[Rfam]
RNA: MIR6274 microRNA precursor family
RNA sequence: GGAUAACACUGUUUUGCUAUUUCGACUAAUAACACAAUGAUACGUAAAAUAACUUUUUCACGUAUCAUUGUGUUAUUGGCCGAAAAUAGCAAAAUCGUAAUAUCC
Numbered sequence: 001g002g003a004u005a006a007c008a009c010u011g012u013u014u015u016g017c018u019a020u021u022u023c024g025a026c027u028a029a030u031a032a033c034a035c036a037a038u039g040a041u042a043c044g045u046a047a048a049a050u051a052a053c054u055u056u057u058u059c060a061c062g063u064a065u066c067a068u069u070g071u072g073u074u075a076u077u078g079g080c081c082g083a084a085a086a087u088a089g090c091a092a093a094a095u096c097g098u099a100a101u102a103u104c105c
Stems, first nucleotide, its partner, number of pairs: 002104004012094009021084004026079020047058003